A member of the RNA family "CyVA-1 RNA" from Pleurocapsales cyanobacterium LEGE 06147, 77 nucleotides long. It scores 80 bits against the family's covariance model. The family's consensus secondary structure is taken from published work. Rfam describes the family as follows. Cyanobacteria, Acidobacteria (1 example), Verrucomicrobia (1 example).
RNA sequence: ACACUGGAAGAAAGUUCUGCCGCUGUGGUUCUUUGCUACACAUCAAAGGAGAGCGAUGUCAGAUGUGUAGACAGUAU
Numbered sequence: 001a002c003a004c005u006g007g008a009a010g011a012a013a014g015u016u017c018u019g020c021c022g023c024u025g026u027g028g029u030u031c032u033u034u035g036c037u038a039c040a041c042a043u044c045a046a047a048g049g050a051g052a053g054c055g056a057u058g059u060c061a062g063a064u065g066u067g068u069a070g071a072c073a074g075u076a077u
Stems, first nucleotide, its partner, number of pairs: 001077001003075004009032004037069008
It is annotated as a small RNA.